[Rfam]
RNA sequence: GUGGGGCGCCCCUAGGGUUCCGCUUCCGGUGACGGGAGGGCUGGUCCGAGAGGGGAGACGGACCGGGUGCUGUCGCCGGGUCCGUUCCACGGCGGGACAAAAGCCCGGGAGGC
Numbered sequence: 001g002u003g004g005g006g007c008g009c010c011c012c013u014a015g016g017g018u019u020c021c022g023c024u025u026c027c028g029g030u031g032a033c034g035g036g037a038g039g040g041c042u043g044g045u046c047c048g049a050g051a052g053g054g055g056a057g058a059c060g061g062a063c064c065g066g067g068u069g070c071u072g073u074c075g076c077c078g079g080g081u082c083c084g085u086u087c088c089a090c091g092g093c094g095g096g097a098c099a100a101a102a103g104c105c106c107g108g109g110a111g112g113c
Stems, first nucleotide, its partner, number of pairs: 007057001009055004015047002020044002022041001023038006058085007088108001090111001094106003

Notes
Rfam assigns this 113-nucleotide sequence from Kribbella voronezhensis to the family "Guanidine-I riboswitch aptamer". The match comes from Rfam's covariance-model search (74 bits).